[Rfam]
RNA sequence: AAGGCGGUAUCCUUAAAGGAACUGCACUUGCAGCUUGAUGGUAGUAGUUUAUUUACAAAGGAAUAGGACUUGAAACAAGAUGUUGGAUUCUGCUCUGAGCCUUAUGGGACCGAGACAGAGGG
Numbered sequence: 001a002a003g004g005c006g007g008u009a010u011c012c013u014u015a016a017a018g019g020a021a022c023u024g025c026a027c028u029u030g031c032a033g034c035u036u037g038a039u040g041g042u043a044g045u046a047g048u049u050u051a052u053u054u055a056c057a058a059a060g061g062a063a064u065a066g067g068a069c070u071u072g073a074a075a076c077a078a079g080a081u082g083u084u085g086g087a088u089u090c091u092g093c094u095c096u097g098a099g100c101c102u103u104a105u106g107g108g109a110c111c112g113a114g115a116c117a118g119a120g121g122g
Stems, first nucleotide, its partner, number of pairs: 001029003004025005010020002090118003093114003097110001100108002
RNA: pan motif